[Rfam]
This 52-nucleotide RNA from Roseobacter sp. SK209-2-6 belongs to the Rfam family "serC leader". From the family's description: This family is a putative regulatory RNA structure that is found upstream of the serC-serA operon in some alpha-proteobacteria. The final stem of the structure overlaps the ribosome binding site of the serC reading frame. It is annotated as a cis-regulatory leader. Lineage of the source: Bacteria > Pseudomonadati > Pseudomonadota > Alphaproteobacteria > Roseobacter. It is one of the family's seed sequences.
RNA sequence: GCGUGGGACACCUCUCCCCAACGAGAGGCAUAUAUCUGUAAGGAUAGCAUUG
Numbered sequence: 001g002c003g004u005g006g007g008a009c010a011c012c013u014c015u016c017c018c019c020a021a022c023g024a025g026a027g028g029c030a031u032a033u034a035u036c037u038g039u040a041a042g043g044a045u046a047g048c049a050u051u052g
Stems, first nucleotide, its partner, number of pairs: 011028006033046005
Dot-bracket structure: ..........((((((......))))))....(((((....)))))......